[Rfam]
RNA sequence: UAUUAAAAAUUUUAUUUGUUUUUAUUAUUAAAAAUUAGUUUUUGUACAUCAACAUAAGGUACAUGUGACACACUACGUGUCAUUCUCUAAUUAUUUUGUCAACCAUGUCAAUUUUUAACAGUAAAAAUAGAUGAAAUUUUUAAUC
Numbered sequence: 001u002a003u004u005a006a007a008a009a010u011u012u013u014a015u016u017u018g019u020u021u022u023u024a025u026u027a028u029u030a031a032a033a034a035u036u037a038g039u040u041u042u043u044g045u046a047c048a049u050c051a052a053c054a055u056a057a058g059g060u061a062c063a064u065g066u067g068a069c070a071c072a073c074u075a076c077g078u079g080u081c082a083u084u085c086u087c088u089a090a091u092u093a094u095u096u097u098g099u100c101a102a103c104c105a106u107g108u109c110a111a112u113u114u115u116u117a118a119c120a121g122u123a124a125a126a127a128u129a130g131a132u133g134a135a136a137u138u139u140u141u142a143a144u145c
Stems, first nucleotide, its partner, number of pairs: 002144015018128009028118006

Description: Shown here is a 145-nucleotide RNA sequence from Gossypium stocksii, a member of the family "MIR7502 microRNA precursor family". Rfam 15.1 lists 74,505 matches to the family in 24 species. The source organism's lineage runs through Eukaryota, Streptophytina, Mesangiospermae, Malvales and Gossypium. Pairs were carried over by alignment from the consensus structure, which was predicted with RNAalifold.